[Rfam]
This 75-nucleotide RNA from Gossypium arboreum belongs to the Rfam family "Plastid-ycf2 5UTR RNA". Plastid ycf2 is a non-coding RNA (ncRNA) recognised in plastids. It was found in the prime untranslated region (5UTR) of ycf2 genes, it presents a tRNA-like motif which suggests it can be involved in mRNA maturation, particularly involved in defining the precise 5' end of the transcript.
RNA sequence: UUGCAUCUAGUAGGAAUUGAACAUACAAAUUCGCCAAUUAUGAGUUAGGUGUUUUAAUCAUUCAGCCAUAGAUGC
Numbered sequence: 001u002u003g004c005a006u007c008u009a010g011u012a013g014g015a016a017u018u019g020a021a022c023a024u025a026c027a028a029a030u031u032c033g034c035c036a037a038u039u040a041u042g043a044g045u046u047a048g049g050u051g052u053u054u055u056a057a058u059c060a061u062u063c064a065g066c067c068a069u070a071g072a073u074g075c
Stems, first nucleotide, its partner, number of pairs: 003075006010026003014022001040069003044066003048062004
It is annotated as a cis-regulatory element.